[Rfam]
A member of the RNA family "sroB RNA" from Pantoea sp. Eser, 79 nucleotides long. It scores 61 bits against the family's covariance model. The family's RNA type in Rfam is small RNA. The literature on the family includes a 2003 paper in Nucleic Acids Res by Vogel et al., "RNomics in Escherichia coli detects new sRNA species and indicates parallel transcriptional output in bacteria". Pairs were carried over by alignment from the consensus structure, which was predicted with LocARNA. Lineage of the source: Bacteria > Pseudomonadati > Pseudomonadota > Enterobacterales > Pantoea.

RNA sequence: AAUCUGGUUGCUGAGCGAUAACAAAAAUCAUAAACAAAUUCCUCUUUGACGGGCCGGUAGCAUUAUCGGCUCUCUUUUU
Numbered sequence: 001a002a003u004c005u006g007g008u009u010g011c012u013g014a015g016c017g018a019u020a021a022c023a024a025a026a027a028u029c030a031u032a033a034a035c036a037a038a039u040u041c042c043u044c045u046u047u048g049a050c051g052g053g054c055c056g057g058u059a060g061c062a063u064u065a066u067c068g069g070c071u072c073u074c075u076u077u078u079u
Stems, first nucleotide, its partner, number of pairs: 007019005028033001051072009